Shown here is a 107-nucleotide RNA sequence, a member of the family "DUF3800-I RNA". The base pairs follow the family's consensus structure, which is taken from published work.

[Rfam]
RNA sequence: UAUAUUUGCAGGUAGAAAUACGCUGUAUACCCGUGUAACCGAAUUAACGUUUAAGCGACAUGUAAUGUCGUCGGCCAUGGGGCCGCCUACGGGCGGUUUUUUAUGUA
Numbered sequence: 001u002a003u004a005u006u007u008g009c010a011g012g013u014a015g016a017a018a019u020a021c022g023c024u025g026u027a028u029a030c031c032c033g034u035g036u037a038a039c040c041g042a043a044u045u046a047a048c049g050u051u052u053a054a055g056c057g058a059c060a061u062g063u064a065a066u067g068u069c070g071u072c073g074g075c076c077a078u079g080g081g082g083c084c085g086c087c088u089a090c091g092g093g094c095g096g097u098u099u100u101u102u103a104u105g106u107a
Base pairs, nucleotide, nucleotide: 007027008026009025010024011023012021013020014019030081031080032079033078034077035076039074040073041072042051043050044049055071056070057069058068059067060066082097083096084095085094086093087092
Rfam describes the family as follows. Actinobacteria, Firmicutes, Fusobacteria, Proteobacteria (1 example), Tenericutes (2 examples). Rfam classes the family as a small RNA.